[Rfam]
RNA sequence: GCUGGUGUAGGUGAUGACAGUUUCUUUCCCCGUCAGAGCGACAGUGUUGACGUCUUGUUGUUAAAGCCAGGUCGUGUCUGACGCACCAGC
Numbered sequence: 001g002c003u004g005g006u007g008u009a010g011g012u013g014a015u016g017a018c019a020g021u022u023u024c025u026u027u028c029c030c031c032g033u034c035a036g037a038g039c040g041a042c043a044g045u046g047u048u049g050a051c052g053u054c055u056u057g058u059u060g061u062u063a064a065a066g067c068c069a070g071g072u073c074g075u076g077u078c079u080g081a082c083g084c085a086c087c088a089g090c
Stems, first nucleotide, its partner, number of pairs: 001090008
Shown here is a 90-nucleotide sequence from Thinocorus orbignyianus, a member of the family "Small nucleolar SNORD12/SNORD106". The family is grouped with related families in Rfam's "SNORD12 clan". The family's RNA type in Rfam is C/D-box small nucleolar RNA. For this family Rfam cites "RNomics: an experimental approach that identifies 201 candidates for novel, small, non-messenger RNAs in mouse" (Huttenhofer et al., EMBO J, 2001). Its family is annotated with RNA processing and nucleolus in the Gene Ontology.